[Rfam]
RNA: mir-190 microRNA precursor family
Organism: Rhodnius prolixus
RNA sequence: UUCCCUGCAAGAUAUGUUUGAUAUUCUUGGUUGUUGUUAUUCGACCAAGGAUCAAACAUAUUAUGCAGUGAU
Numbered sequence: 001u002u003c004c005c006u007g008c009a010a011g012a013u014a015u016g017u018u019u020g021a022u023a024u025u026c027u028u029g030g031u032u033g034u035u036g037u038u039a040u041u042c043g044a045c046c047a048a049g050g051a052u053c054a055a056a057c058a059u060a061u062u063a064u065g066c067a068g069u070g071a072u
Base pairs, nucleotide, nucleotide: 005068006067007066008065009064011062012061013060014059015058016057017056018055019054020053021052022051024049025048029046030045031044032043033042